A member of the RNA family "Lysine riboswitch aptamer" from Grimontia hollisae, 181 nucleotides long. Riboswitches are metabolite binding domains within certain messenger RNAs that serve as precision sensors for their corresponding targets. Allosteric rearrangement of mRNA structure is mediated by ligand binding, and this results in modulation of gene expression. This family includes riboswitches that sense lysine in a number of genes involved in lysine metabolism, including lysC. A search with the family's covariance model found it, with a score of 126 bits.

[Rfam]
RNA sequence: UAUACACGUAGAGGUGCGCUGUUUAUCAGUAGGUUGUCUUAGGGUGAUGCCAGUGAGGGCAAGCGAAAGGAAACCGCGCCGAAGCACAAUGGGUUUAUCAGACUUUUGUGCUGGGGUUGUGCUCGAAAAGACACAACACUGCCAUAGUAUUGGGAUUUAACUAUGGAGCGCUACUGUAGGG
Numbered sequence: 001u002a003u004a005c006a007c008g009u010a011g012a013g014g015u016g017c018g019c020u021g022u023u024u025a026u027c028a029g030u031a032g033g034u035u036g037u038c039u040u041a042g043g044g045u046g047a048u049g050c051c052a053g054u055g056a057g058g059g060c061a062a063g064c065g066a067a068a069g070g071a072a073a074c075c076g077c078g079c080c081g082a083a084g085c086a087c088a089a090u091g092g093g094u095u096u097a098u099c100a101g102a103c104u105u106u107u108g109u110g111c112u113g114g115g116g117u118u119g120u121g122c123u124c125g126a127a128a129a130g131a132c133a134c135a136a137c138a139c140u141g142c143c144a145u146a147g148u149a150u151u152g153g154g155a156u157u158u159a160a161c162u163a164u165g166g167a168g169c170g171c172u173a174c175u176g177u178a179g180g181g
Stems, first nucleotide, its partner, number of pairs: 008174004016079004021074004032064001034062006083112007091104002094101001113140002116137006123130001142166007